[Rfam]
RNA sequence: ACGCGCAGAGAUAAAAACACGUCCCGGUAGGUAGUCCGGGAGCGGCGGCAGACCCGCCGUCAGUAACCUGCCUCCUUUGGUUGUCCGUUCUCUGCAUCGCCAUG
Numbered sequence: 001a002c003g004c005g006c007a008g009a010g011a012u013a014a015a016a017a018c019a020c021g022u023c024c025c026g027g028u029a030g031g032u033a034g035u036c037c038g039g040g041a042g043c044g045g046c047g048g049c050a051g052a053c054c055c056g057c058c059g060u061c062a063g064u065a066a067c068c069u070g071c072c073u074c075c076u077u078u079g080g081u082u083g084u085c086c087g088u089u090c091u092c093u094g095c096a097u098c099g100c101c102a103u104g
Stems, first nucleotide, its partner, number of pairs: 005095007022041006042060006070081003

The family of this 104-nucleotide RNA from Butyricicoccus porcorum is "azaaromatic riboswitch aptamer (yjdF RNA)".